[Rfam]
RNA sequence: CUCUGGAAAGCAGCAGGCUGUCCUCGGACAUGCUGUGCUCACCGACGGUGCAAGCGGAGUCCUGUAAACGCAGGGCUGUGCGGAAACUCUCAGGUCCAAUACAGAG
Number, nucleotide and partner (000 for none) at each position: 001c106002u105003c104004u103005g102006g000007a000008a000009a000010g000011c000012a039013g038014c037015a036016g000017g000018c000019u000020g000021u000022c000023c000024u000025c000026g000027g000028a000029c000030a000031u000032g000033c000034u000035g000036u015037g014038c013039u012040c000041a095042c094043c093044g091045a090046c000047g000048g089049u000050g087051c000052a000053a000054g000055c082056g081057g000058a000059g000060u000061c000062c000063u000064g000065u000066a000067a000068a000069c000070g000071c000072a000073g000074g000075g000076c000077u000078g000079u000080g000081c056082g055083g000084a000085a000086a000087c050088u000089c048090u045091c044092a000093g043094g042095u041096c000097c000098a000099a000100u000101a000102c005103a004104g003105a002106g001
RNA: Glycine riboswitch aptamer
Organism: Arthrobacter oryzae